[Rfam]
Source information:
Shown here is a 300-nucleotide RNA from Ensete ventricosum, a member of the family "Plant signal recognition particle RNA". NCBI's taxonomy places the organism under Eukaryota, Viridiplantae, Tracheophyta, Magnoliopsida, Ensete. Its Rfam clan is "SRP clan". It scores 120 bits against the family's covariance model.
RNA sequence: GCCCAAGUCAGGCAGCUGAGCUAUGUAACCCGAGCGGGGGCAACAGAGUUGGGGUGGGAUGUUGUGGUCAGAAUGGGAUGAGUGCGGUCGUGCAGAACUUGGCUUGCCCAAGUCAGGCAGCUGAGCUAUGUGACCCGGGCGAAGGCCCGAGCCAUAUUGGAUCCUAAAACAGAGGACAUCGCUUCAGGCUGGCUUCACAGAGCAACGAUUACCUCCCACUCUUGACGGUGGAAGGAUUAUAGGCCGGUGUACGCCUCACUCGCCUUGCCCAUCAGGCUAACACUGACCAGACCACCAUUU
Numbered sequence: 001g002c003c004c005a006a007g008u009c010a011g012g013c014a015g016c017u018g019a020g021c022u023a024u025g026u027a028a029c030c031c032g033a034g035c036g037g038g039g040g041c042a043a044c045a046g047a048g049u050u051g052g053g054g055u056g057g058g059a060u061g062u063u064g065u066g067g068u069c070a071g072a073a074u075g076g077g078a079u080g081a082g083u084g085c086g087g088u089c090g091u092g093c094a095g096a097a098c099u100u101g102g103c104u105u106g107c108c109c110a111a112g113u114c115a116g117g118c119a120g121c122u123g124a125g126c127u128a129u130g131u132g133a134c135c136c137g138g139g140c141g142a143a144g145g146c147c148c149g150a151g152c153c154a155u156a157u158u159g160g161a162u163c164c165u166a167a168a169a170c171a172g173a174g175g176a177c178a179u180c181g182c183u184u185c186a187g188g189c190u191g192g193c194u195u196c197a198c199a200g201a202g203c204a205a206c207g208a209u210u211a212c213c214u215c216c217c218a219c220u221c222u223u224g225a226c227g228g229u230g231g232a233a234g235g236a237u238u239a240u241a242g243g244c245c246g247g248u249g250u251a252c253g254c255c256u257c258a259c260u261c262g263c264c265u266u267g268c269c270c271a272u273c274a275g276g277c278u279a280a281c282a283c284u285g286a287c288c289a290g291a292c293c294a295c296c297a298u299u300u
Stems, first nucleotide, its partner, number of pairs: 001041003006022002008019004029038003046300004053296005060289002062286003065282002067277001069276001073272005080261005086255002089253006099247008108235002110229001112226006119220002123163002126160003129156004134151001136149005172215004182207001184205001189200003